Source information
Shown here is a 102-nucleotide RNA from Oceanobacillus zhaokaii, a member of the family "Purine riboswitch aptamer". The family's consensus secondary structure is taken from published work. The match comes from Rfam's covariance-model search (82 bits). Riboswitches are metabolite binding domains within certain messenger RNAs that serve as precision sensors for their corresponding targets. Allosteric rearrangement of mRNA structure is mediated by ligand binding, and this results in modulation of gene expression. A class of riboswitches that selectively recognises guanine and becomes saturated at concentrations as low as 5 nM. In Bacillus subtilis, this mRNA motif is located on at least five separate transcriptional units that together encode 17 genes that are mostly involved in purine transport and purine nucleotide biosynthesis. It has also been shown that some members of this family are specific for adenine instead.
RNA sequence: AAAUCAGCUUCAUACGAUCCUUAUAUAUUUAUGGAAAUAAGGUCCAUAAGUUUCUACCUGGCAGCCGUAAAAUGCCGGACUAUGAGGAAAGUUAGAACGCCA
Numbered sequence: 001a002a003a004u005c006a007g008c009u010u011c012a013u014a015c016g017a018u019c020c021u022u023a024u025a026u027a028u029u030u031a032u033g034g035a036a037a038u039a040a041g042g043u044c045c046a047u048a049a050g051u052u053u054c055u056a057c058c059u060g061g062c063a064g065c066c067g068u069a070a071a072a073u074g075c076c077g078g079a080c081u082a083u084g085a086g087g088a089a090a091g092u093u094a095g096a097a098c099g100c101c102a
Base pairs, nucleotide, nucleotide: 018088019087020086021085022084023083024082025081029049030048031047032046033045034044035043058078059077060076061075062074063073
Dot-bracket structure: .................((((((((...(((((((.......)))))))........((((((.........))))))..))))))))..............